[Rfam]
Background:
Rfam assigns this 423-nucleotide RNA sequence from Coprinellus micaceus to the family "Nuclear RNase P". By type it is a ribozyme.
Nucleotides: 423
Stems, first nucleotide, its partner, number of pairs: 001423004007417003012355007020064005034052006075407005087271003100114005115131006133265006151251003356395006
Number, partner (000 for none) and nucleotide at each position: 001423a002422c003421a004420g005000a006000u007417g008416a009415a010000a011000a012355a013354c014353c015352g016351c017350g018349a019000g020064g021063c022062u023061c024060g025000c026000a027000c028000c029000g030000u031000a032000c033000a034052g035051a036050g037049a038048g039047g040000g041000g042000g043000c044000c045000u046000a047039c048038c049037u050036c051035u052034c053000a054000a055000g056000u057000u058000c059000g060024c061023g062022a063021g064020c065000g066000g067000g068000u069000u070000a071000a072000g073000g074000u075407c076406u077405g078404a079403g080000u081000a082000u083000u084000c085000u086000a087271g088270u089269c090000a091000u092000u093000c094000u095000c096000g097000a098000u099000c100114g101113g102112u103111u104110c105000u106000a107000g108000c109000c110104g111103g112102a113101c114100c115131a116130g117129g118128g119127c120126u121000c122000u123000a124000a125000a126120g127119g128118c129117c130116u131115u132000c133265g134264c135263a136262a137261c138260g139000u140000a141000u142000c143000a144000g145000a146000a147000a148000u149000c150000c151251g152250a153249c154000c155000c156000u157000g158000u159000c160000u161000u162000c163000c164000u165000a166000g167000c168000g169000a170000u171000c172000u173000c174000u175000u176000g177000u178000g179000g180000a181000u182000c183000g184000g185000a186000c187000c188000c189000a190000a191000a192000g193000a194000c195000g196000g197000g198000c199000u200000u201000u202000a203000c204000a205000g206000c207000c208000a209000a210000g211000a212000g213000g214000g215000u216000c217000g218000u219000u220000c221000c222000c223000c224000u225000u226000u227000g228000c229000u230000g231000g232000g233000g234000a235000a236000a237000g238000u239000g240000g241000g242000g243000g244000c245000g246000g247000u248000g249153g250152u251151c252000u253000u254000g255000g256000a257000a258000g259000u260138c261137g262136u263135u264134g265133c266000a267000a268000u269089g270088a271087c272000c273000g274000g275000g276000c277000u278000g279000a280000c281000c282000g283000u284000g285000u286000u287000g288000g289000a290000u291000u292000c293000g294000u295000c296000g297000g298000a299000c300000u301000c302000g303000g304000u305000g306000g307000u308000g309000a310000c311000a312000c313000u314000g315000g316000g317000a318000u319000c320000g321000g322000c323000g324000a325000g326000g327000c328000g329000g330000u331000u332000g333000g334000g335000u336000c337000c338000u339000u340000u341000a342000g343000c344000u345000c346000a347000c348000u349018u350017c351016g352015c353014g354013g355012u356395g357394c358393a359392u360391c361390u362000c363000a364000u365000a366000u367000g368000g369000g370000c371000u372000u373000u374000c375000c376000u377000c378000u379000u380000g381000g382000g383000a384000g385000g386000u387000c388000u389000u390361g391360g392359g393358u394357g395356u396000a397000a398000c399000u400000c401000g402000a403079u404078u405077c406076a407075g408000a409000c410000u411000a412000c413000u414000c415009u416008u417007c418000g419000u420004c421003u422002g423001u

The match comes from Rfam's covariance-model search (72 bits).